[Rfam]
RNA: tRNA
RNA sequence: GCCGGCGUAGCUCAGUUGGUUAGAGCGCCUGAUUGUGGAUCAGGAGGUCCCCCGUUCGAGCCGGGGCGCUGGUA
Number, nucleotide and partner (000 for none) at each position: 001g073002c072003c071004g070005g069006c068007g067008u000009a000010g026011c025012u024013c023014a000015g000016u000017u000018g000019g000020u000021u000022a000023g013024a012025g011026c010027g000028c044029c043030u042031g041032a040033u000034u000035g000036u000037g000038g000039a000040u032041c031042a030043g029044g028045a000046g000047g000048u000049c000050c066051c065052c064053c063054g062055u000056u000057c000058g000059a000060g000061c000062c054063g053064g052065g051066g050067c007068g006069c005070u004071g003072g002073u001074a000